[Rfam]
RNA sequence: GCAACACUUUAUAGCAAAUCCGUUCGAUGCCUUGAAAU
Numbered sequence: 001g002c003a004a005c006a007c008u009u010u011a012u013a014g015c016a017a018a019u020c021c022g023u024u025c026g027a028u029g030c031c032u033u034g035a036a037a038u
Stems, first nucleotide, its partner, number of pairs: 005034002013024003
CRISPR RNA direct repeat element: a 38-nucleotide RNA sequence from Wolinella succinogenes. It is one of the family's seed sequences. The base pairs follow the family's consensus structure, which was predicted with WAR.